[Rfam]
RNA sequence: UCGGGUUUCUUGCUUCUCCUAAAAAGCAAGUGGUGCGGGUGAUUUGCUGCCGCCUGGUUUCUUAUUUCCAGUCAAAGAAUAAGUGGCGAGCCUAGGG
Numbered sequence: 001u002c003g004g005g006u007u008u009c010u011u012g013c014u015u016c017u018c019c020u021a022a023a024a025a026g027c028a029a030g031u032g033g034u035g036c037g038g039g040u041g042a043u044u045u046g047c048u049g050c051c052g053c054c055u056g057g058u059u060u061c062u063u064a065u066u067u068c069c070a071g072u073c074a075a076a077g078a079a080u081a082a083g084u085g086g087c088g089a090g091c092c093u094a095g096g097g
Base pairs, nucleotide, nucleotide: 009030010029011028012027013026014025015024040052041051043049054071055070056069057068061083062082063081064080065079066078
RNA: wcaG RNA
Organism: Anaposvirus socalone